[Rfam]
RNA sequence: GGUGGAGUCACUGGAGGCAGUGGUUCAUCGAUCUCUUCGUAGGAAUUUGCUGUCUCCCAAUAGCAGCAAUUCAUGAAUCGAUCGAUAAACCUCUGCAUCCAGCGCUAGCCCU
Numbered sequence: 001g002g003u004g005g006a007g008u009c010a011c012u013g014g015a016g017g018c019a020g021u022g023g024u025u026c027a028u029c030g031a032u033c034u035c036u037u038c039g040u041a042g043g044a045a046u047u048u049g050c051u052g053u054c055u056c057c058c059a060a061u062a063g064c065a066g067c068a069a070u071u072c073a074u075g076a077a078u079c080g081a082u083c084g085a086u087a088a089a090c091c092u093c094u095g096c097a098u099c100c101a102g103c104g105c106u107a108g109c110c111c112u
Base pairs, nucleotide, nucleotide: 013100014099015098018095019094020093022091023090024089025088027086028085029084030083031082032081033080036077037076038075